A member of the RNA family "Small nucleolar RNA SNORD35" from Amphiprion percula, 85 nucleotides long. By type it is a C/D-box small nucleolar RNA. Rfam links the family to the GO terms RNA processing and nucleolus. U35 is a C/D box snoRNA located in intron 6 of ribosomal protein L13A and intron 3 of ribosomal protein S11 in humans and at homologous positions in mouse and chicken ribosomal protein genes. U35 guides the methylation of 2'-O-ribose sites in 28S rRNA.

RNA sequence: UGCAAAUGAUGCUUUUUCUCACGAUGGUCUUCCAAGCUCAGGAAGCUCUGACGAUACUGCCUUUGGCAAACACUGAUGCAGCUUA
Numbered sequence: 001u002g003c004a005a006a007u008g009a010u011g012c013u014u015u016u017u018c019u020c021a022c023g024a025u026g027g028u029c030u031u032c033c034a035a036g037c038u039c040a041g042g043a044a045g046c047u048c049u050g051a052c053g054a055u056a057c058u059g060c061c062u063u064u065g066g067c068a069a070a071c072a073c074u075g076a077u078g079c080a081g082c083u084u085a
Base pairs, nucleotide, nucleotide: 001080002079003078004077